Rfam assigns this 124-nucleotide RNA sequence to the family "Small nucleolar RNA SNORA44". A reference for the family is Huttenhofer et al. (2001), "RNomics: an experimental approach that identifies 201 candidates for novel, small, non-messenger RNAs in mouse", EMBO J. The family's consensus secondary structure was predicted with PFOLD. ACA44 is a member of the H/ACA class of snoRNA that guide the sites of modification of uridines to pseudouridines. Its Rfam clan is "SNORA44 clan".
[Rfam]
RNA sequence: UAGCAUAUUCCAGGGGCUGUGGCUGCUUGUAGCCAUGGGAUCUCCAAGCGCCUGCCAGAGCAAUGGAGAGACUGGCAGCCCAGGUCAGCACAGGGCCUGCAGCGGCCACUCAGCUUUCCUAUAG
Numbered sequence: 001u002a003g004c005a006u007a008u009u010c011c012a013g014g015g016g017c018u019g020u021g022g023c024u025g026c027u028u029g030u031a032g033c034c035a036u037g038g039g040a041u042c043u044c045c046a047a048g049c050g051c052c053u054g055c056c057a058g059a060g061c062a063a064u065g066g067a068g069a070g071a072c073u074g075g076c077a078g079c080c081c082a083g084g085u086c087a088g089c090a091c092a093g094g095g096c097c098u099g100c101a102g103c104g105g106c107c108a109c110u111c112a113g114c115u116u117u118c119c120u121a122u123a124g
Base pairs, nucleotide, nucleotide: 010038011037015034016033017032018031019030020029021028065119066118067117068116069115070114078106079105081099082098083097084096